[Rfam]
RNA: small nucleolar RNA snoR117
Organism: Zingiber officinale
RNA sequence: GGCCGAUGAUGUGAUAUUAUUGUUCGUACCAUUUGAGAUUUGACGACUUUGUCAUCUCUUUGAUGCUCUUUCUACUUCUGAGGCCU
Numbered sequence: 001g002g003c004c005g006a007u008g009a010u011g012u013g014a015u016a017u018u019a020u021u022g023u024u025c026g027u028a029c030c031a032u033u034u035g036a037g038a039u040u041u042g043a044c045g046a047c048u049u050u051g052u053c054a055u056c057u058c059u060u061u062g063a064u065g066c067u068c069u070u071u072c073u074a075c076u077u078c079u080g081a082g083g084c085c086u
Base pairs, nucleotide, nucleotide: 001085002084003083004082